[Rfam]
RNA sequence: CGUUAAAAGAAUAGGUUGCCGUAGACAGUAGGAACCCAAUGGGUUUAAACUUUCCUACCGAGGUGAGAUUGAGAACUAAUCCUUAUAAAUAGAGAUUAAAGGUCUCUCCAUGUCUACGGAGAGACCUUUAUUUGUUGGCCU
Numbered sequence: 001c002g003u004u005a006a007a008a009g010a011a012u013a014g015g016u017u018g019c020c021g022u023a024g025a026c027a028g029u030a031g032g033a034a035c036c037c038a039a040u041g042g043g044u045u046u047a048a049a050c051u052u053u054c055c056u057a058c059c060g061a062g063g064u065g066a067g068a069u070u071g072a073g074a075a076c077u078a079a080u081c082c083u084u085a086u087a088a089a090u091a092g093a094g095a096u097u098a099a100a101g102g103u104c105u106c107u108c109c110a111u112g113u114c115u116a117c118g119g120a121g122a123g124a125c126c127u128u129u130a131u132u133u134g135u136u137g138g139c140c141u
Stems, first nucleotide, its partner, number of pairs: 028058006034044003101126009
RNA: Ribosomal protein L10 leader
Organism: Tepidimicrobium xylanilyticum